A member of the RNA family "bZIP non canonical Hac1/Xbp1 intron" from Geotrypetes seraphini, 77 nucleotides long. About the family: bZIP intron RNA is a non-canonical intron that was first reported in HAC1 gene in yeast and XBP1 gene in Metazoa. For this family Rfam cites "Conserved RNA structures in the non-canonical Hac1/Xbp1 intron" (Hooks and Griffiths-Jones, RNA Biol, 2011). The source organism's lineage runs through Eukaryota, Opisthokonta, Eumetazoa, Bilateria and Geotrypetes.
RNA sequence: AGGCAGCCGGGUCCGCUGAGUCCGCAGCACUCAGUCUACGUGUGCCUCUGCAGCAGGUGCAGACCCAGAUGCCGCCG
Numbered sequence: 001a002g003g004c005a006g007c008c009g010g011g012u013c014c015g016c017u018g019a020g021u022c023c024g025c026a027g028c029a030c031u032c033a034g035u036c037u038a039c040g041u042g043u044g045c046c047u048c049u050g051c052a053g054c055a056g057g058u059g060c061a062g063a064c065c066c067a068g069a070u071g072c073c074g075c076c077g
Stems, first nucleotide, its partner, number of pairs: 002076003006072002009066005016034006043059005